Guanidine-II riboswitch aptamer (mini-ykkC): a 44-nucleotide sequence from Paraburkholderia acidisoli.
On this family, see Weinberg et al., Nucleic Acids Res 2007: "Identification of 22 candidate structured RNAs in bacteria using the CMfinder comparative genomics pipeline".
The match comes from Rfam's covariance-model search (37 bits).
RNA sequence: CCACGGACGACCGUGGCCGCCAUUCCCACGGCGGGACGGCCCGC
Dot-bracket structure: ((((((....))))))..............(((((....)))))